Notes:
This 276-nucleotide sequence from Callithrix jacchus belongs to the Rfam family "Mason-Pfizer monkey virus packaging signal". The base pairs follow the family's consensus structure, which was predicted with PFOLD.
RNA sequence: UGGCGCCCAAACGUGGGGCUCGAGUACCAGGGGUACAGUGAGGAAAGCCGUCGAGGUCAGCCGGCACAGAAGGAUUAAGAAACCCGGAGAAAAGAGCGUCGUGGGAGCCUGCCAUGGACUCGCGCUCCAGUAAGCAGACGGCGAAUAUGGGACAGGAAAUCAGCCAGCAUGAGUUGUUUAUAGAGAGUUUAAGUAACACUUUAAAGGCGUGAGGAGUAAAGAUGAAAAUAAAACAAUUGUGUAAAUAUUUUGACUAUAUCCAGGAUGUCUGCCCUU
Numbered sequence: 001u002g003g004c005g006c007c008c009a010a011a012c013g014u015g016g017g018g019c020u021c022g023a024g025u026a027c028c029a030g031g032g033g034u035a036c037a038g039u040g041a042g043g044a045a046a047g048c049c050g051u052c053g054a055g056g057u058c059a060g061c062c063g064g065c066a067c068a069g070a071a072g073g074a075u076u077a078a079g080a081a082a083c084c085c086g087g088a089g090a091a092a093a094g095a096g097c098g099u100c101g102u103g104g105g106a107g108c109c110u111g112c113c114a115u116g117g118a119c120u121c122g123c124g125c126u127c128c129a130g131u132a133a134g135c136a137g138a139c140g141g142c143g144a145a146u147a148u149g150g151g152a153c154a155g156g157a158a159a160u161c162a163g164c165c166a167g168c169a170u171g172a173g174u175u176g177u178u179u180a181u182a183g184a185g186a187g188u189u190u191a192a193g194u195a196a197c198a199c200u201u202u203a204a205a206g207g208c209g210u211g212a213g214g215a216g217u218a219a220a221g222a223u224g225a226a227a228a229u230a231a232a233a234c235a236a237u238u239g240u241g242u243a244a245a246u247a248u249u250u251u252g253a254c255u256a257u258a259u260c261c262a263g264g265a266u267g268u269c270u271g272c273c274c275u276u
Stems, first nucleotide, its partner, number of pairs: 006032003013027003038048002085130001087128001088126002094121003100116005135155001137153001142149002160203001162201001163199001210252005216246002220238002223235002262275003266271001
Taxonomically the source falls in Callithrix (Eukaryota, Opisthokonta, Deuterostomia, Chordata). It scores 106 bits against the family's covariance model.